[Rfam]
RNA sequence: AGCUGUUCCCCUCUGGAGGUUCAAGAUCUCCACACUUCAUGGGCCGCGGUUUCCGACGGCCCAUUUUUUUAUCUUUC
Number, nucleotide and partner (000 for none) at each position: 001a000002g000003c000004u000005g000006u000007u000008c018009c000010c016011c015012u000013c000014u000015g011016g010017a000018g008019g000020u000021u000022c000023a000024a000025g000026a000027u000028c000029u000030c000031c000032a000033c000034a000035c000036u000037u000038c000039a000040u000041g062042g061043g060044c059045c058046g057047c000048g000049g054050u000051u000052u000053c000054c049055g000056a000057c046058g045059g044060c043061c042062c041063a000064u000065u000066u000067u000068u000069u000070u000071a000072u000073c000074u000075u000076u000077c000